RNA sequence: GGGAAACGGAGUGCGCGGCACCGUCCGCGGAACAAACGGA
Numbered sequence: 001g002g003g004a005a006a007c008g009g010a011g012u013g014c015g016c017g018g019c020a021c022c023g024u025c026c027g028c029g030g031a032a033c034a035a036a037c038g039g040a
Stems, first nucleotide, its partner, number of pairs: 014029005021039003
The record is a 40-nucleotide RNA sequence from Polerovirus TUYV, which matches "Putative RNA-dependent RNA polymerase ribosomal frameshift site" in Rfam. The family's consensus secondary structure is taken from published work. For this family Rfam cites "Biological properties and molecular characterization of beet chlorosis virus (BChV)" (Hauser et al., Arch Virol, 2002). Taxonomically the source falls in Polerovirus TUYV (Viruses, Pisuviricota, Pisoniviricetes, Polerovirus). A search with the family's covariance model found it, with a score of 44 bits.